[Rfam]
RNA: FMN riboswitch aptamer (RFN element)
RNA sequence: UACGAUCUUCGGGGCAGGGUGAAAUUCCCGAUCGGCGGUGAUGUGCAGGAUGCUGCACCAGCCCGCGAGCCGCAAGGCAGGAGACCGGUGCGAAGCCGGCGCCGACGGUUACAGUCCGGAUGGGAGAAGAUCGGC
Numbered sequence: 001u002a003c004g005a006u007c008u009u010c011g012g013g014g015c016a017g018g019g020u021g022a023a024a025u026u027c028c029c030g031a032u033c034g035g036c037g038g039u040g041a042u043g044u045g046c047a048g049g050a051u052g053c054u055g056c057a058c059c060a061g062c063c064c065g066c067g068a069g070c071c072g073c074a075a076g077g078c079a080g081g082a083g084a085c086c087g088g089u090g091c092g093a094a095g096c097c098g099g100c101g102c103c104g105a106c107g108g109u110u111a112c113a114g115u116c117c118g119g120a121u122g123g124g125a126g127a128a129g130a131u132c133g134g135c
Stems, first nucleotide, its partner, number of pairs: 003133008017029003031115002033104002035066004061102002070080001085099004106118003